A member of the RNA family "Acido-Lenti-1 RNA" from Lacipirellula parvula, 46 nucleotides long. The family's consensus secondary structure is taken from published work.
[Rfam]
RNA sequence: CCGGGGGUUUGCGCUCCCGGCUACAUCAUUUCGCCCCUUCGGGGCU
Numbered sequence: 001c002c003g004g005g006g007g008u009u010u011g012c013g014c015u016c017c018c019g020g021c022u023a024c025a026u027c028a029u030u031u032c033g034c035c036c037c038u039u040c041g042g043g044g045c046u
Stems, first nucleotide, its partner, number of pairs: 001020008033045005